Rfam assigns this 149-nucleotide RNA from Actibacterium pelagium to the family "FMN riboswitch aptamer (RFN element)".
A search with the family's covariance model found it, with a score of 113 bits.
RNA sequence: CGCUGUUCUCAGGGCGGGGUGAAAUUCCCCACCGGCGGUAUACGGGGUACGCCCCGUCAGCCCGCGAGCGCCUUUGCCCCGGCAAAGGGUCAGCAGAUCUGGUGAGAGGCCAGAGCCGACGGUUACAGUCCGGAUGAAAGAGAACGACA
Dot-bracket structure: ...(((((((......(((.......))).[[((((((.....................[[))))..((.......................))...(((((.......)))))]])).(((.....]]))).......)))))))...
Description
The family's consensus secondary structure is taken from published work.